RNA: mir-544 microRNA precursor family
Organism: Propithecus coquereli
RNA sequence: AUCACCUGGGAGCUUGUUAAAAUGCAGAUUCUGGUUCAAGAAACAUGGACAGGGUCCUGAGAGUCUGCAAUUUUAACAAGAUCCCAGGUGAUGGUGA
Numbered sequence: 001a002u003c004a005c006c007u008g009g010g011a012g013c014u015u016g017u018u019a020a021a022a023u024g025c026a027g028a029u030u031c032u033g034g035u036u037c038a039a040g041a042a043a044c045a046u047g048g049a050c051a052g053g054g055u056c057c058u059g060a061g062a063g064u065c066u067g068c069a070a071u072u073u074u075a076a077c078a079a080g081a082u083c084c085c086a087g088g089u090g091a092u093g094g095u096g097a
Stems, first nucleotide, its partner, number of pairs: 003090003008084003013080007020072002024068005030062003